Notes
Rfam assigns this 154-nucleotide part of an RNA from Endocarpon pusillum to the family "Eukaryotic small subunit ribosomal RNA". The source organism's lineage runs through Eukaryota, Opisthokonta, Dikarya, leotiomyceta and Endocarpon pusillum. The family has 90 seed sequences and 75,755 matches in Rfam 15.1. The literature on the family includes a 2001 paper in Science by Yusupov et al., "Crystal structure of the ribosome at 5.5 A resolution".
RNA sequence: CCGCCCGUCGCUACUACCGAUUGAAUGGCUCAGUGAGGCCUUGGGACUAGCUCAGAGAGGUCGGCAACGACCACUCAGAGCCGGAAACUUGGUCAAACUUGGUCAUUUAGAGGAAGUAAAAGUCGUAACAAGGUUCGCUGAAGCGGGAUCCUCC
Numbered sequence: 001c002c003g004c005c006c007g008u009c010g011c012u013a014c015u016a017c018c019g020a021u022u023g024a025a026u027g028g029c030u031c032a033g034u035g036a037g038g039c040c041u042u043g044g045g046a047c048u049a050g051c052u053c054a055g056a057g058a059g060g061u062c063g064g065c066a067a068c069g070a071c072c073a074c075u076c077a078g079a080g081c082c083g084g085a086a087a088c089u090u091g092g093u094c095a096a097a098c099u100u101g102g103u104c105a106u107u108u109a110g111a112g113g114a115a116g117u118a119a120a121a122g123u124c125g126u127a128a129c130a131a132g133g134u135u136c137g138c139u140g141a142a143g144c145g146g147g148a149u150c151c152u153c154c
Stems, first nucleotide, its partner, number of pairs: 001132001003129001006125002009122001012118004017113002021109001023108008032099003037094004043088001047084002050081004055076003059072004134146001136145003
Dot-bracket structure: (.(..((.(..((((.((..(.((((((((.(((..((((..(...((.((((.(((.((((......)))).))).)))).))...)..))))..))).)))))))))..)).))))...).))...)..).(.(((....))))........